This 135-nucleotide RNA sequence from Knufia peltigerae belongs to the Rfam family "U4 spliceosomal RNA". Pairs were carried over by alignment from the consensus structure, which is taken from published work. Rfam describes the family as follows. U4 small nuclear RNA (U4 snRNA) is a component of the major U2-dependent spliceosome. A reference for the family is Zwieb (1997), "The uRNA database", Nucleic Acids Res. The organism belongs to Knufia, within Eukaryota. It is annotated as a spliceosomal small nuclear RNA.

[Rfam]
RNA sequence: AUCUCAGUGCACGGGCUUUACGCGUUACAGUGAGGAUUCGUCCGAGUACGUGUUAUUGCUAGUUGAAAACUAUACAACUGACCGCUCCUUGAGGUCCUCACGGAUCUCAUGGGAAUUUUUGAAUAACCUACUAUG
Numbered sequence: 001a002u003c004u005c006a007g008u009g010c011a012c013g014g015g016c017u018u019u020a021c022g023c024g025u026u027a028c029a030g031u032g033a034g035g036a037u038u039c040g041u042c043c044g045a046g047u048a049c050g051u052g053u054u055a056u057u058g059c060u061a062g063u064u065g066a067a068a069a070c071u072a073u074a075c076a077a078c079u080g081a082c083c084g085c086u087c088c089u090u091g092a093g094g095u096c097c098u099c100a101c102g103g104a105u106c107u108c109a110u111g112g113g114a115a116u117u118u119u120u121g122a123a124u125a126a127c128c129u130a131c132u133a134u135g
Stems, first nucleotide, its partner, number of pairs: 020053005026048003034043003086113003089109001091107001093105001095103002128135001